[Rfam]
The record is a 454-nucleotide RNA from Roseomonas acroporae, which matches "Bacterial RNase P class A" in Rfam. The base pairs follow the family's consensus structure, which is taken from published work. It scores 229 bits against the family's covariance model. Lineage of the source: Bacteria > Pseudomonadati > Pseudomonadota > Acetobacterales > Roseomonas. Rfam describes the family as follows. Ribonuclease P (RNase P) is a ubiquitous endoribonuclease, found in archaea, bacteria and eukarya as well as chloroplasts and mitochondria.
Nucleotides: 454
Base pairs, nucleotide, nucleotide: 001450002449003448004447005446006445007444008443009442010441011439012405013404014403015402016401017400018399020045021044022043023042024041025040026039027038028037050437051436052435054434055433056432057431058430059251060250061249062248067340069338072247073246074245075244076243077091078090079089080088081087092106093104094103095102096101107242108241112240113239114236115235116234129182130181131178132177133176135174136173137172190208191207192206193205194204195203209231210229211228212227213226214225215224216223217222255362256361257360258359265353266352267351268350269349270348331346332345333344334343335342369388370387371386372385373384374383375382376381
Number, partner (000 for none) and nucleotide at each position: 001450c002449c003448a004447g005446a006445c007444g008443g009442c010441u011439g012405g013404a014403c015402g016401g017400c018399c019000g020045c021044u022043g023042g024041c025040c026039c027038c028037g029000g030000a031000g032000c033000g034000a035000u036000c037028c038027g039026g040025g041024g042023c043022u044021g045020g046000a047000g048000g049000a050437a051436a052435g053000u054434c055433c056432g057431g058430g059251c060250u061249c062248c063000a064000c065000g066000g067340g068000a069338a070000c071000a072247c073246g074245g075244u076243g077091c078090c079089g080088g081087c082000c083000a084000a085000c086000a087081g088080c089079c090078g091077g092106c093104g094103g095102g096101g097000g098000c099000g100000a101096c102095c103094c104093c105000a106092g107242g108241g109000a110000c111000a112240g113239u114236g115235c116234c117000a118000c119000a120000g121000a122000g123000a124000a125000c126000a127000g128000a129182c130181c131178g132177c133176c134000c135174g136173g137172a138000c139000u140000c141000g142000g143000c144000g145000g146000c147000c148000g149000g150000a151000a152000g153000c154000g155000a156000u157000u158000c159000c160000g161000g162000c163000g164000c165000g166000g167000c168000c169000g170000c171000c172137u173136c174135c175000a176133g177132g178131c179000a180000a181130g182129g183000g184000u185000g186000a187000a188000a189000c190208g191207g192206u193205g194204c195203g196000g197000c198000a199000a200000g201000a202000g203195c204194g205193c206192a207191c208190c209231g210229c211228g212227c213226c214225c215224c216223c217222g218000g219000c220000a221000a222217c223216g224215g225214g226213g227212g228211c229210g230000g231209c232000a233000g234116g235115g236114c237000a238000a239113a240112c241108c242107c243076c244075a245074c246073c247072g248062g249061g250060a251059g252000c253000a254000a255362g256361g257360c258359c259000g260000a261000a262000u263000a264000g265353g266352g267351a268350u269349g270348g271000c272000c273000g274000g275000c276000g277000a278000g279000g280000c281000c282000g283000c284000g285000c286000g287000a288000g289000g290000g291000g292000c293000g294000a295000c296000c297000c298000g299000g300000a301000a302000a303000c304000g305000g306000g307000a308000a309000a310000u311000g312000c313000c314000g315000g316000c317000g318000c319000g320000c321000g322000g323000c324000g325000g326000a327000c328000g329000c330000g331346g332345a333344c334343g335342c336000g337000u338069u339000c340067c341000c342335g343334c344333g345332u346331c347000g348270c349269c350268g351267u352266c353265c354000g355000g356000g357000u358000u359258g360257g361256c362255c363000g364000c365000g366000u367000c368000a369388g370387g371386c372385c373384c374383g375382u376381c377000g378000c379000g380000a381376g382375a383374c384373g385372g386371g387370u388369c389000g390000c391000a392000g393000a394000g395000g396000a397000a398000u399018g400017g401016c402015c403014g404013u405012c406000c407000c408000g409000c410000c411000c412000c413000g414000c415000a416000a417000g418000g419000g420000g421000c422000g423000g424000a425000c426000a427000g428000a429000a430058c431057c432056c433055g434054g435052c436051u437050u438000a439011c440000a441010g442009g443008c444007c445006g446005u447004c448003u449002g450001g451000c452000g453000c454000a